This 75-nucleotide sequence from Crocodylus porosus belongs to the Rfam family "Mammalian CPEB3 ribozyme". It scores 41 bits against the family's covariance model.
[Rfam]
RNA sequence: AACUGCCAUAAUGGCCAUAGCAGAAGUGCUCAUGUUGUGGCCCUGUCAGACCCUAACAAAUCUGUAAAUUCUGCU
Numbered sequence: 001a002a003c004u005g006c007c008a009u010a011a012u013g014g015c016c017a018u019a020g021c022a023g024a025a026g027u028g029c030u031c032a033u034g035u036u037g038u039g040g041c042c043c044u045g046u047c048a049g050a051c052c053c054u055a056a057c058a059a060a061u062c063u064g065u066a067a068a069u070u071c072u073g074c075u
Base pairs, nucleotide, nucleotide: 013042014041015040016039019075020074021073022072023071024070025069026038027037028036047064048063049062050061